[Rfam]
RNA sequence: AGAUGAGAGAUACACCCCGCCCGCAGGGAACUGCGGACGGCACCUGGUCGGGGCCUCCCCAGCUUCGAUCCGGUAGUGCCCUCGCGCACACUGCCGGAGCCUCUGGCUCCGGGUCUCCUCACCGAUCGGA
Numbered sequence: 001a002g003a004u005g006a007g008a009g010a011u012a013c014a015c016c017c018c019g020c021c022c023g024c025a026g027g028g029a030a031c032u033g034c035g036g037a038c039g040g041c042a043c044c045u046g047g048u049c050g051g052g053g054c055c056u057c058c059c060c061a062g063c064u065u066c067g068a069u070c071c072g073g074u075a076g077u078g079c080c081c082u083c084g085c086g087c088a089c090a091c092u093g094c095c096g097g098a099g100c101c102u103c104u105g106g107c108u109c110c111g112g113g114u115c116u117c118c119u120c121a122c123c124g125a126u127c128g129g130a
Stems, first nucleotide, its partner, number of pairs: 004121004009117002017040003021036006042074003046070002049067006076089004094112008122129002

This 130-nucleotide sequence from Streptomyces sp. NRRL WC-3618 belongs to the Rfam family "Streptomyces RNA 5676". It is annotated as a small RNA. Identified by deep sequencing of transcriptome at the end of exponential growth phase. Appears longer on northern blot than sequencing transcript. This indicates processing step. Streptomyces specific. The literature on the family includes a 2011 paper in RNA Biol by Vockenhuber et al., "Deep sequencing-based identification of small non-coding RNAs in Streptomyces coelicolor". Lineage of the source: Bacteria > Actinomycetota > Actinomycetes > Kitasatosporales > Streptomyces.